RNA sequence: GAAAACGAAAUAUUUUACACUCAUAUAAUCCCUGGAAUAUGGCUGGGGAGUUUCUACCAGGCAACCGUAAAUUGCCUGACUAUGAGUGAAAGUGUACCUAGG
Numbered sequence: 001g002a003a004a005a006c007g008a009a010a011u012a013u014u015u016u017a018c019a020c021u022c023a024u025a026u027a028a029u030c031c032c033u034g035g036a037a038u039a040u041g042g043c044u045g046g047g048g049a050g051u052u053u054c055u056a057c058c059a060g061g062c063a064a065c066c067g068u069a070a071a072u073u074g075c076c077u078g079a080c081u082a083u084g085a086g087u088g089a090a091a092g093u094g095u096a097c098c099u100a101g102g
Base pairs, nucleotide, nucleotide: 018088019087020086021085022084023083024082025081029049030048031047032046033045034044035043058078059077060076061075062074063073064072